[Rfam]
RNA sequence: AGCCACUGAUGAAAUUUGAUUCUGCCAAAUGAGUUACUGUGAUUUUAAACCUUCCGUUCCUCUUUUUUCUGAGGUU
Numbered sequence: 001a002g003c004c005a006c007u008g009a010u011g012a013a014a015u016u017u018g019a020u021u022c023u024g025c026c027a028a029a030u031g032a033g034u035u036a037c038u039g040u041g042a043u044u045u046u047a048a049a050c051c052u053u054c055c056g057u058u059c060c061u062c063u064u065u066u067u068u069c070u071g072a073g074g075u076u
Stems, first nucleotide, its partner, number of pairs: 001076004
RNA: Small nucleolar RNA SNORD47